[Rfam]
Eukaryotic large subunit ribosomal RNA: a 461-nucleotide part of an RNA from Chironomus tentans. The family's consensus secondary structure is taken from published work. The organism belongs to Camptochironomus, within Eukaryota.
RNA sequence: GCAUUUAUACUGUUGAUAUGGCAUACCUGUGCAGUACGAGAGGAACCACAGGUACAAACCAAUGGCACAAUACUUGUCCGAGCGGACAUUGGUAUGAAGCUACGUUUGCCGGAUUAUGCCUGAACGCCUCUAAGGUCGUAGCCGUGCCAGAACAACAGUUCAUCUAAAGGCUCUUAUACACAUUGUAUUGGUUAUAAUGGACGGGUACAUAUCUAUUCUCGUAAUAUUUUUGUACUCACCUAAAUCCAUUCUCAUAUUCUCCCAUGUGUCCAUAUGUAUCGCAUGAAACUAGUAAUUACGAUUAUGUUUUUGAACGUUUCGAUAUUAUUUAUGGUCAAUCAUGGAUAAUGCUAUGUUAGAGCCUGAACCCCUCGCAAACGACGAGGAUUCAAGCGGAGUGCCGUAAGUUGUAGAGAAUAUUUCAUUCGAUCUUCUAAGGCUACUCUAGCUUGGCGGUUCUC
Numbered sequence: 001g002c003a004u005u006u007a008u009a010c011u012g013u014u015g016a017u018a019u020g021g022c023a024u025a026c027c028u029g030u031g032c033a034g035u036a037c038g039a040g041a042g043g044a045a046c047c048a049c050a051g052g053u054a055c056a057a058a059c060c061a062a063u064g065g066c067a068c069a070a071u072a073c074u075u076g077u078c079c080g081a082g083c084g085g086a087c088a089u090u091g092g093u094a095u096g097a098a099g100c101u102a103c104g105u106u107u108g109c110c111g112g113a114u115u116a117u118g119c120c121u122g123a124a125c126g127c128c129u130c131u132a133a134g135g136u137c138g139u140a141g142c143c144g145u146g147c148c149a150g151a152a153c154a155a156c157a158g159u160u161c162a163u164c165u166a167a168a169g170g171c172u173c174u175u176a177u178a179c180a181c182a183u184u185g186u187a188u189u190g191g192u193u194a195u196a197a198u199g200g201a202c203g204g205g206u207a208c209a210u211a212u213c214u215a216u217u218c219u220c221g222u223a224a225u226a227u228u229u230u231u232g233u234a235c236u237c238a239c240c241u242a243a244a245u246c247c248a249u250u251c252u253c254a255u256a257u258u259c260u261c262c263c264a265u266g267u268g269u270c271c272a273u274a275u276g277u278a279u280c281g282c283a284u285g286a287a288a289c290u291a292g293u294a295a296u297u298a299c300g301a302u303u304a305u306g307u308u309u310u311u312g313a314a315c316g317u318u319u320c321g322a323u324a325u326u327a328u329u330u331a332u333g334g335u336c337a338a339u340c341a342u343g344g345a346u347a348a349u350g351c352u353a354u355g356u357u358a359g360a361g362c363c364u365g366a367a368c369c370c371c372u373c374g375c376a377a378a379c380g381a382c383g384a385g386g387a388u389u390c391a392a393g394c395g396g397a398g399u400g401c402c403g404u405a406a407g408u409u410g411u412a413g414a415g416a417a418u419a420u421u422u423c424a425u426u427c428g429a430u431c432u433u434c435u436a437a438g439g440c441u442a443c444u445c446u447a448g449c450u451u452g453g454c455g456g457u458u459c460u461c
Base pairs, nucleotide, nucleotide: 009159010158011157012156013155014154015153019149020148021147022146024054025053026052027051028050029049030048031047055108056107057106058105059104063102064101065100070095071094072093073092075088076087077086078085079084110144111143112142118136119135120134121133168364169363170362171361172360173359174358365459366458367457368456369455370386371385372384373383374382390452391451392450393449394448396445397444398443400440401439407434410431412430415427416426417425418424